[Rfam]
RNA sequence: AACUGCAUUACAGGGUGAAUCUCCUUUGGCAGCAGGCCACUUGACAUACUGUGCCAGUGCUACUUUUGCUUUCAUCAGUGUGUCAACUGCCAAAGAAGAUUUGCCCGGCAAUGCUCCU
Numbered sequence: 001a002a003c004u005g006c007a008u009u010a011c012a013g014g015g016u017g018a019a020u021c022u023c024c025u026u027u028g029g030c031a032g033c034a035g036g037c038c039a040c041u042u043g044a045c046a047u048a049c050u051g052u053g054c055c056a057g058u059g060c061u062a063c064u065u066u067u068g069c070u071u072u073c074a075u076c077a078g079u080g081u082g083u084c085a086a087c088u089g090c091c092a093a094a095g096a097a098g099a100u101u102u103g104c105c106c107g108g109c110a111a112u113g114c115u116c117c118u
Stems, first nucleotide, its partner, number of pairs: 005114005011108001013106007021098002024095001027092006035084001
RNA: mir-399 microRNA precursor family